THF (Tetrahydrofolate) riboswitch aptamer: a 99-nucleotide RNA sequence from Aerococcus christensenii. Rfam links the family to the GO term tetrahydrofolate metabolic process. Lineage of the source: Bacteria > Bacilli > Lactobacillales > Aerococcaceae > Aerococcus.
RNA sequence: UUGAGAGUAGGAUGAGUGCGUUAAGUGUCAGUGGACGGAAUGUUGCUGCUGGACGAAGAGGGACUGGAACCCUCGCGAUGCUCAUUCGCAUUCGCUCAG
Numbered sequence: 001u002u003g004a005g006a007g008u009a010g011g012a013u014g015a016g017u018g019c020g021u022u023a024a025g026u027g028u029c030a031g032u033g034g035a036c037g038g039a040a041u042g043u044u045g046c047u048g049c050u051g052g053a054c055g056a057a058g059a060g061g062g063a064c065u066g067g068a069a070c071c072c073u074c075g076c077g078a079u080g081c082u083c084a085u086u087c088g089c090a091u092u093c094g095c096u097c098a099g
Stems, first nucleotide, its partner, number of pairs: 001099005010087009019077003025054002028052007038093005058074004

Rfam 15.1 lists 747 matches to the family in 747 species. About the family: Tetrahydrofolate (THF) riboswitch was first reported for Ames et al. as an RNA motif in 5' untranslated (5'-UTR)regions of folate transport and biosynthesis genes in Firmicutes genomes.